[Rfam]
RNA: Bacteroides sRNA BTnc201
RNA sequence: GCUUCUCUACGGAAGUCUGUGAAGAUGAUAGUAGAGUGUUUGUUUUGUUUGUGUGUGAUGCAUUCUUGUCUGGUGUGAUAGGAAUGCAUCUUUUUUUA
Numbered sequence: 001g002c003u004u005c006u007c008u009a010c011g012g013a014a015g016u017c018u019g020u021g022a023a024g025a026u027g028a029u030a031g032u033a034g035a036g037u038g039u040u041u042g043u044u045u046u047g048u049u050u051g052u053g054u055g056u057g058a059u060g061c062a063u064u065c066u067u068g069u070c071u072g073g074u075g076u077g078a079u080a081g082g083a084a085u086g087c088a089u090c091u092u093u094u095u096u097u098a
Stems, first nucleotide, its partner, number of pairs: 005036006015026004057090014